[Rfam]
RNA sequence: GCGUGGGUCGGCCCGCUGUACUGGAUCCAGUGGGCUGGGGGAUGCCGCCGCCUCCAUCCCCGCGGGCGGCGGACCGGCCCGGGGGGCGAACUGACGUCUCCCGGGCUGAC
Numbered sequence: 001g002c003g004u005g006g007g008u009c010g011g012c013c014c015g016c017u018g019u020a021c022u023g024g025a026u027c028c029a030g031u032g033g034g035c036u037g038g039g040g041g042a043u044g045c046c047g048c049c050g051c052c053u054c055c056a057u058c059c060c061c062g063c064g065g066g067c068g069g070c071g072g073a074c075c076g077g078c079c080c081g082g083g084g085g086g087c088g089a090a091c092u093g094a095c096g097u098c099u100c101c102c103g104g105g106c107u108g109a110c
Stems, first nucleotide, its partner, number of pairs: 002108001006075003009037010038043001045072009055062001076107013
RNA: Streptomyces RNA 4115